[Rfam]
RNA: c-di-AMP riboswitch aptamer (ydaO/yuaA leader)
RNA sequence: UAGAAUUUAUUGCCGAAUCCUUGAAGGUACGAGGAACCAAAGGUGGGGUGAAUCUGGUAUUUUCCAGUAGGGAAUCCUUCUCCGAACCCGUCAGACUAACUUCGGAGGACAGGAAGGAGAAAGAUA
Numbered sequence: 001u002a003g004a005a006u007u008u009a010u011u012g013c014c015g016a017a018u019c020c021u022u023g024a025a026g027g028u029a030c031g032a033g034g035a036a037c038c039a040a041a042g043g044u045g046g047g048g049u050g051a052a053u054c055u056g057g058u059a060u061u062u063u064c065c066a067g068u069a070g071g072g073a074a075u076c077c078u079u080c081u082c083c084g085a086a087c088c089c090g091u092c093a094g095a096c097u098a099a100c101u102u103c104g105g106a107g108g109a110c111a112g113g114a115a116g117g118a119g120a121a122a123g124a125u126a
Base pairs, nucleotide, nucleotide: 011111012110013108014107019027020026030104031103032102033101038045039044046089047088048087054067055066056065057064070083071082072081